[Rfam]
RNA sequence: CUUGACCCCGCGAUGCUGGCGGACCCCCGACCUGGCAGCAUCGCGGGGUUUCCAU
Numbered sequence: 001c002u003u004g005a006c007c008c009c010g011c012g013a014u015g016c017u018g019g020c021g022g023a024c025c026c027c028c029g030a031c032c033u034g035g036c037a038g039c040a041u042c043g044c045g046g047g048g049u050u051u052c053c054a055u
Stems, first nucleotide, its partner, number of pairs: 002054001004052001005049014020034001
RNA: F6 TB sRNA